The record is a 118-nucleotide sequence from Virgibacillus salinus, which matches "SAM riboswitch aptamer (S box leader)" in Rfam.
A search with the family's covariance model found it, with a score of 83 bits.
Lineage of the source: Bacteria > Bacillati > Bacillota > Bacilli > Virgibacillus.
Gene Ontology term of the family: regulation of gene expression.

RNA sequence: CUCUUAUCGAGAGUGGUGGAGGGAAUAGGCCCUGUGAAACCCGGCAACCUUAAAAGCUUAACUAAUGCUUAGUAAGGUGCUAAAUCCUACAGGUCAAGUAUGAUCUGGAAGAUAAGGG
Dot-bracket structure: ((((((((....(.(((...(((..[[[[)))......))))((((.((.(.(................).)...))))))...(]]]]((((((......))))))..)))))))))
Numbered sequence: 001c002u003c004u005u006a007u008c009g010a011g012a013g014u015g016g017u018g019g020a021g022g023g024a025a026u027a028g029g030c031c032c033u034g035u036g037a038a039a040c041c042c043g044g045c046a047a048c049c050u051u052a053a054a055a056g057c058u059u060a061a062c063u064a065a066u067g068c069u070u071a072g073u074a075a076g077g078u079g080c081u082a083a084a085u086c087c088u089a090c091a092g093g094u095c096a097a098g099u100a101u102g103a104u105c106u107g108g109a110a111g112a113u114a115a116g117g118g
Stems, first nucleotide, its partner, number of pairs: 001118008013042001015041003021032003026089004043081004048077002051072001053070001085110001090107006